[Rfam]
RNA sequence: UUUACAGAUAGAGGUGCGAUAAAUCAAUAGUACCUAUGCAGAGUUACCAACGUUGAUGUAUAGGAAAAGGGAUUAUCGCCGAAAUAAUUUUCGAAUGGUAAAGGAGAAUUAUUGGUCUUGGGUUGAAUAAACACCAGACUGUCAUACAAACGUAUGGAGUGCUAUCUUGCAU
Numbered sequence: 001u002u003u004a005c006a007g008a009u010a011g012a013g014g015u016g017c018g019a020u021a022a023a024u025c026a027a028u029a030g031u032a033c034c035u036a037u038g039c040a041g042a043g044u045u046a047c048c049a050a051c052g053u054u055g056a057u058g059u060a061u062a063g064g065a066a067a068a069g070g071g072a073u074u075a076u077c078g079c080c081g082a083a084a085u086a087a088u089u090u091u092c093g094a095a096u097g098g099u100a101a102a103g104g105a106g107a108a109u110u111a112u113u114g115g116u117c118u119u120g121g122g123u124u125g126a127a128u129a130a131a132c133a134c135c136a137g138a139c140u141g142u143c144a145u146a147c148a149a150a151c152g153u154a155u156g157g158a159g160u161g162c163u164a165u166c167u168u169g170c171a172u
Stems, first nucleotide, its partner, number of pairs: 006167006016079006023073003033064008083113010114140005120134001122132003142157006
RNA: Lysine riboswitch aptamer
Organism: Propionispira arboris